[Rfam]
RNA sequence: GAGGAAUGAUGAUCUUCCACUUCUGGUCCGUGUUUCUGAAACCUGUGAUCUCACGGAAGUUCUGACCUU
Numbered sequence: 001g002a003g004g005a006a007u008g009a010u011g012a013u014c015u016u017c018c019a020c021u022u023c024u025g026g027u028c029c030g031u032g033u034u035u036c037u038g039a040a041a042c043c044u045g046u047g048a049u050c051u052c053a054c055g056g057a058a059g060u061u062c063u064g065a066c067c068u069u
Stems, first nucleotide, its partner, number of pairs: 001069004

Shown here is a 69-nucleotide RNA sequence from Eleutherodactylus coqui, a member of the family "Small nucleolar RNA SNORD18". A reference for the family is Giorgi et al. (2001), "Release of U18 snoRNA from its host intron requires interaction of Nop1p with the Rnt1p endonuclease", EMBO J. The family has 16 seed sequences and 2,622 matches in Rfam 15.1. Its Rfam clan is "SNORD18 clan". It scores 65 bits against the family's covariance model. Pairs were carried over by alignment from the consensus structure, which was predicted with PFOLD. Rfam classes the family as a C/D-box small nucleolar RNA.